[Rfam]
The family of this 375-nucleotide sequence from Plenodomus lingam is "Nuclear RNase P". The base pairs follow the family's consensus structure, which is taken from published work. Taxonomically the source falls in Plenodomus lingam (Eukaryota, Fungi, Dothideomycetes, Pleosporineae). It scores 35 bits against the family's covariance model. By type it is a ribozyme.

RNA sequence: GCCUCGCCAACGCUGCGUUUCUUUGCACACACACAGACGCUUUCCGAAGCUGUCCUAACAUGCAAAUGAGAAAUUCGGAGUAAUCUUCACUUGUAUCAUGUCCAUCAUGGACUGUACUGCCCGUAAGGGCCUGGCGUGACUCACGUCUGCACUCGGCAUCAGAAAACUCAGGGCCUACGAAGCAGGCUUCAUCUUUCCUCUGGUGGGUGGAGUUUGCAGAGUGGUCACCCUAUGGGAGUCGGUGCGAAGAUUGUGUGCCUUGAACCCGCUUAGGGGAGAGGUGACACUGUAGUACAAUACGCAGCAUGCUUGACCUCGAGUAGCUUCGGCGAAAGAGGGCACGGUAUCAUUCGAUUCUGAUUACUCUGGCAAGGC
Numbered sequence: 001g002c003c004u005c006g007c008c009a010a011c012g013c014u015g016c017g018u019u020u021c022u023u024u025g026c027a028c029a030c031a032c033a034c035a036g037a038c039g040c041u042u043u044c045c046g047a048a049g050c051u052g053u054c055c056u057a058a059c060a061u062g063c064a065a066a067u068g069a070g071a072a073a074u075u076c077g078g079a080g081u082a083a084u085c086u087u088c089a090c091u092u093g094u095a096u097c098a099u100g101u102c103c104a105u106c107a108u109g110g111a112c113u114g115u116a117c118u119g120c121c122c123g124u125a126a127g128g129g130c131c132u133g134g135c136g137u138g139a140c141u142c143a144c145g146u147c148u149g150c151a152c153u154c155g156g157c158a159u160c161a162g163a164a165a166a167c168u169c170a171g172g173g174c175c176u177a178c179g180a181a182g183c184a185g186g187c188u189u190c191a192u193c194u195u196u197c198c199u200c201u202g203g204u205g206g207g208u209g210g211a212g213u214u215u216g217c218a219g220a221g222u223g224g225u226c227a228c229c230c231u232a233u234g235g236g237a238g239u240c241g242g243u244g245c246g247a248a249g250a251u252u253g254u255g256u257g258c259c260u261u262g263a264a265c266c267c268g269c270u271u272a273g274g275g276g277a278g279a280g281g282u283g284a285c286a287c288u289g290u291a292g293u294a295c296a297a298u299a300c301g302c303a304g305c306a307u308g309c310u311u312g313a314c315c316u317c318g319a320g321u322a323g324c325u326u327c328g329g330c331g332a333a334a335g336a337g338g339g340c341a342c343g344g345u346a347u348c349a350u351u352c353g354a355u356u357c358u359g360a361u362u363a364c365u366c367u368g369g370c371a372a373g374g375c
Base pairs, nucleotide, nucleotide: 001375002374003373004372007369008368009367012305013304014303015302016301017300018299022066023065024064025063036054037053038052039050040049041047076359077358078357079356080355085249086248087247088246119130120129121128122127133147134146135145136144137143149245150244151243152242154241155240171231172230173229306347307346308345309344310343